[Rfam]
Background: mraW RNA: a 105-nucleotide sequence from Corynebacterium endometrii. Pairs were carried over by alignment from the consensus structure, which is taken from published work. NCBI's taxonomy places the organism under Bacteria, Bacillati, Actinomycetota, Mycobacteriales, Corynebacterium.
RNA sequence: AUAUGGAGUGCGUGUAAGGACUCUGUUCGAGGCGGACGCUCUGGUGUACUUCCCCGAUAUCAGAUACCUGCCUCGGACAGGGCCCUAUACGCACUUGAUUUAUCU
Numbered sequence: 001a002u003a004u005g006g007a008g009u010g011c012g013u014g015u016a017a018g019g020a021c022u023c024u025g026u027u028c029g030a031g032g033c034g035g036a037c038g039c040u041c042u043g044g045u046g047u048a049c050u051u052c053c054c055c056g057a058u059a060u061c062a063g064a065u066a067c068c069u070g071c072c073u074c075g076g077a078c079a080g081g082g083c084c085c086u087a088u089a090c091g092c093a094c095u096u097g098a099u100u101u102a103u104c105u
Stems, first nucleotide, its partner, number of pairs: 010092007018085002021082015040064008